[Rfam]
RNA sequence: AUCAGCCAAGGGCAAACCGUUUGAAAGAAUGGGACGCAAAGUCACGGGUCUAACGUAGCAAUACUAUGAUGGCUGGGCUACCUGA
Numbered sequence: 001a002u003c004a005g006c007c008a009a010g011g012g013c014a015a016a017c018c019g020u021u022u023g024a025a026a027g028a029a030u031g032g033g034a035c036g037c038a039a040a041g042u043c044a045c046g047g048g049u050c051u052a053a054c055g056u057a058g059c060a061a062u063a064c065u066a067u068g069a070u071g072g073c074u075g076g077g078c079u080a081c082c083u084g085a
Base pairs, nucleotide, nucleotide: 012037013036017032018031019030020029021028022027040079041078042077043076045075046074047073048070049069050068055064056063057062
Dot-bracket structure: ...........((...((((((....))))))...))..((((.((((((....(((....)))...)))..)))))))......
This 85-nucleotide RNA from Litchfieldia salsa belongs to the Rfam family "c-di-GMP-I riboswitch aptamer". GEMM was predicted in a large-scale screen for bacterial structured RNA regulatory elements. Genes associated with GEMM are involved in a diverse array of functions, including chemotaxis regulation, signal transduction, secretion and chitin.